[Rfam]
This 88-nucleotide sequence from Zancudomyces culisetae belongs to the Rfam family "Selenocysteine transfer RNA".

RNA sequence: GCACUGAUGAGAUCGAUCGGUUUAUCGGUGGCAGGCUUCAAACCUGUCGGUCGUUAAUUCGGCAGUGGUUCGACUCCACCUUCGGUGC
Numbered sequence: 001g002c003a004c005u006g007a008u009g010a011g012a013u014c015g016a017u018c019g020g021u022u023u024a025u026c027g028g029u030g031g032c033a034g035g036c037u038u039c040a041a042a043c044c045u046g047u048c049g050g051u052c053g054u055u056a057a058u059u060c061g062g063c064a065g066u067g068g069u070u071c072g073a074c075u076c077c078a079c080c081u082u083c084g085g086u087g088c
Stems, first nucleotide, its partner, number of pairs: 001088007009080001012029006030048006050063004065079004